This 59-nucleotide sequence from Gryllotalpicola protaetiae belongs to the Rfam family "msiK RNA".
[Rfam]
RNA sequence: ACAUAACAUCCAUUCACUACGGAUCGUCCGGCACGUACCUGCCGGUGAAGGAGACAUAA
Numbered sequence: 001a002c003a004u005a006a007c008a009u010c011c012a013u014u015c016a017c018u019a020c021g022g023a024u025c026g027u028c029c030g031g032c033a034c035g036u037a038c039c040u041g042c043c044g045g046u047g048a049a050g051g052a053g054a055c056a057u058a059a
Stems, first nucleotide, its partner, number of pairs: 010051002013049004028045006